Annotation:
The family of this 135-nucleotide RNA sequence from Myotis myotis is "Small Cajal body specific RNA 11". Rfam's curators write: scaRNAs are a specific class of small nuclear RNAs which localise to the Cajal bodies and guide the modification of RNA polymerase II transcribed spliceosomal RNAs U1, U2, U4, U5 and U12. ACA57 belongs to the H/ACA box class of guide RNAs as it has the predicted hairpin-hinge-hairpin-tail structure, conserved H/ACA-box motifs and is found associated with GAR1. ACA57 is predicted to guide the pseudouridylation of the U5 spliceosomal RNA at position U43. A reference for the family is Darzacq et al. (2002), "Cajal body-specific small nuclear RNAs: a novel class of 2'-O-methylation and pseudouridylation guide RNAs", EMBO J. It scores 139 bits against the family's covariance model. The base pairs follow the family's consensus structure, which was predicted with RNAalifold. Lineage of the source: Eukaryota > Chordata > Sarcopterygii > Mammalia > Myotis. Rfam classes the family as a small Cajal body RNA.
[Rfam]
RNA sequence: UUGUCCUGGCCUAUGCUUUGCUCACCUGUGCUCAGUAUAACAGGGGAGUCUGGCAGGACACACAGCAACCUCCCUCUCACUUUAGGAGGGCCGUCCUGAGUAUAGGGCUGGCUCUUAAAGGCACGAGAGGACAAU
Number, nucleotide and partner (000 for none) at each position: 001u000002u060003g059004u058005c057006c056007u055008g054009g000010c053011c052012u000013a000014u000015g000016c000017u000018u000019u000020g049021c048022u047023c000024a000025c044026c043027u042028g041029u040030g000031c000032u000033c000034a000035g000036u000037a000038u000039a000040a029041c028042a027043g026044g025045g000046g000047a022048g021049u020050c000051u000052g011053g010054c008055a007056g006057g005058a004059c003060a002061c000062a000063c000064a000065g000066c000067a000068a000069c000070c000071u000072c000073c130074c129075u128076c127077u126078c125079a000080c000081u121082u120083u119084a000085g000086g116087a115088g114089g113090g112091c111092c110093g108094u107095c106096c105097u104098g103099a000100g000101u000102a000103u098104a097105g096106g095107g094108c093109u000110g092111g091112c090113u089114c088115u087116u086117a000118a000119a083120g082121g081122c000123a000124c000125g078126a077127g076128a075129g074130g073131a000132c000133a000134a000135u000